[Rfam]
RNA sequence: ACUACCGUGAGAUAUGUUUGAUAUUCUUGGUUGUUUGUACAUAAUCGACCAGGAAUCAAACAUAUUAUUAUGAUGGU
Numbered sequence: 001a002c003u004a005c006c007g008u009g010a011g012a013u014a015u016g017u018u019u020g021a022u023a024u025u026c027u028u029g030g031u032u033g034u035u036u037g038u039a040c041a042u043a044a045u046c047g048a049c050c051a052g053g054a055a056u057c058a059a060a061c062a063u064a065u066u067a068u069u070a071u072g073a074u075g076g077u
Stems, first nucleotide, its partner, number of pairs: 006072004011066012024053002029050005
Overview
mir-190 microRNA precursor family: a 77-nucleotide RNA sequence from Cephus cinctus. The organism belongs to Cephus, within Eukaryota. The match comes from Rfam's covariance-model search (68 bits). Its Rfam clan is "mir-50 clan". Rfam 15.1 lists 1,667 matches to the family in 854 species.